[Rfam]
RNA sequence: AAAUCAGAUGUAUGUAAGUGGCUCUGGAUAAGAGCAUCUGCCAAAUGCUAUAAA
Numbered sequence: 001a002a003a004u005c006a007g008a009u010g011u012a013u014g015u016a017a018g019u020g021g022c023u024c025u026g027g028a029u030a031a032g033a034g035c036a037u038c039u040g041c042c043a044a045a046u047g048c049u050a051u052a053a054a
Stems, first nucleotide, its partner, number of pairs: 013043001014041003021035005

This 54-nucleotide RNA sequence from Bagarius yarrelli belongs to the Rfam family "UnaL2 LINE 3' element". The family's RNA type in Rfam is cis-regulatory element. The match comes from Rfam's covariance-model search (56 bits). Rfam 15.1 lists 493,311 matches to the family in 99 species. The eel long interspersed element (LINE) UnaL2 and its partner short interspersed element (SINE) share a conserved 3' tail containing a stem-loop that is critical for their retrotransposition. Presumably, the first step of retrotransposition is the recognition of their 3' tails by UnaL2-encoded reverse transcriptase. The solution structure of a 17-nucleotide RNA derived from the 3' tail of UnaL2 was determined by NMR. The organism belongs to Bagarius, within Eukaryota.